[Rfam]
RNA: Small nucleolar RNA SNORD112
Organism: Diceros bicornis
RNA sequence: UGGACCAAUGAUGAGAAUGAGUUGGGAACCAAGGAUUAUGAUUAAUCCAAUGCUGUGCACCUGAGGUCCAAA
Numbered sequence: 001u002g003g004a005c006c007a008a009u010g011a012u013g014a015g016a017a018u019g020a021g022u023u024g025g026g027a028a029c030c031a032a033g034g035a036u037u038a039u040g041a042u043u044a045a046u047c048c049a050a051u052g053c054u055g056u057g058c059a060c061c062u063g064a065g066g067u068c069c070a071a072a
Base pairs, nucleotide, nucleotide: 001070002069003068004067005066006065